[Rfam]
A member of the RNA family "Archaeal RNase P" from Natronoarchaeum philippinense, 356 nucleotides long. Ribonuclease P (RNase P) is a ubiquitous endoribonuclease, found in archaea, bacteria and eukarya as well as chloroplasts and mitochondria. Its best characterised activity is the generation of mature 5'-ends of tRNAs by cleaving the 5'-leader elements of precursor-tRNAs. Cellular RNase Ps are ribonucleoproteins. RNA from bacterial RNase Ps retains its catalytic activity in the absence of the protein subunit, i.e. it is a ribozyme. For this family Rfam cites "The Ribonuclease P Database" (Brown, Nucleic Acids Res, 1999). It scores 154 bits against the family's covariance model. Lineage of the source: Archaea > Methanobacteriati > Methanobacteriota > Halobacteriales > Natronoarchaeum. By type it is a ribozyme.
RNA sequence: GGUAGAGAGAGCCCGGCCUCCGCGAGCCCUCGCGGGCGCGUGAGGAAAGUCCCCCCACCGUCCGGGCAGACGACCGGGCGCAAGCCCGGGGCGGGAGACCGUCGGCACUGGAACAGAAACGACACGUCUCGGCCCGACCGAUGCGGUGUGCGAACCCCGAGCGAAAAAAGCGACCGCGAACAAGCGACGGGGAGCUAACCCACCUAGGAGUGAGGGUCGAGGACCGAUGGAACGGCGAAUCCUCGCCGGUGCAAGUCGGCGUCCCGGCGUGUAAACGCCGCAAGGUAGCCUGGACGCGGGCGCCGACGCUUAGCCGAAUGCCGGGAAGAACAGAAGGGGGCUUACUCCUCUCUGCC
Numbered sequence: 001g002g003u004a005g006a007g008a009g010a011g012c013c014c015g016g017c018c019u020c021c022g023c024g025a026g027c028c029c030u031c032g033c034g035g036g037c038g039c040g041u042g043a044g045g046a047a048a049g050u051c052c053c054c055c056c057a058c059c060g061u062c063c064g065g066g067c068a069g070a071c072g073a074c075c076g077g078g079c080g081c082a083a084g085c086c087c088g089g090g091g092c093g094g095g096a097g098a099c100c101g102u103c104g105g106c107a108c109u110g111g112a113a114c115a116g117a118a119a120c121g122a123c124a125c126g127u128c129u130c131g132g133c134c135c136g137a138c139c140g141a142u143g144c145g146g147u148g149u150g151c152g153a154a155c156c157c158c159g160a161g162c163g164a165a166a167a168a169a170g171c172g173a174c175c176g177c178g179a180a181c182a183a184g185c186g187a188c189g190g191g192g193a194g195c196u197a198a199c200c201c202a203c204c205u206a207g208g209a210g211u212g213a214g215g216g217u218c219g220a221g222g223a224c225c226g227a228u229g230g231a232a233c234g235g236c237g238a239a240u241c242c243u244c245g246c247c248g249g250u251g252c253a254a255g256u257c258g259g260c261g262u263c264c265c266g267g268c269g270u271g272u273a274a275a276c277g278c279c280g281c282a283a284g285g286u287a288g289c290c291u292g293g294a295c296g297c298g299g300g301c302g303c304c305g306a307c308g309c310u311u312a313g314c315c316g317a318a319u320g321c322c323g324g325g326a327a328g329a330a331c332a333g334a335a336g337g338g339g340g341c342u343u344a345c346u347c348c349u350c351u352c353u354g355c356c
Stems, first nucleotide, its partner, number of pairs: 001356003005352005010346002012325006021042004047343003051340005056251004063277002069247001071245003074089005090103005104242002109238001111236001125226002128221008255307004259297005